RNA sequence: CGGCCCGGUUCCCGCCCUCUCCGGGGAAUCGUGAACCGGGGGUUCCGACCGGGCCGACAGGGGAUGAAGAGCUUUUGCUUUGCUGAGCAGAUGAUGACCACGCCCUUCGCUGACCUGCUAUUUGAC
Numbered sequence: 001c002g003g004c005c006c007g008g009u010u011c012c013c014g015c016c017c018u019c020u021c022c023g024g025g026g027a028a029u030c031g032u033g034a035a036c037c038g039g040g041g042g043u044u045c046c047g048a049c050c051g052g053g054c055c056g057a058c059a060g061g062g063g064a065u066g067a068a069g070a071g072c073u074u075u076u077g078c079u080u081u082g083c084u085g086a087g088c089a090g091a092u093g094a095u096g097a098c099c100a101c102g103c104c105c106u107u108c109g110c111u112g113a114c115c116u117g118c119u120a121u122u123u124g125a126c
Stems, first nucleotide, its partner, number of pairs: 001056010014043004021039004
A member of the RNA family "Small nucleolar RNA snoR9" from Pyrococcus horikoshii, 126 nucleotides long.
The family is grouped with related families in Rfam's "Archaeal small nucleolar RNA CD-box".
Its family is annotated with nucleolus and RNA processing in the Gene Ontology.
The sequence is in the family's curated seed alignment.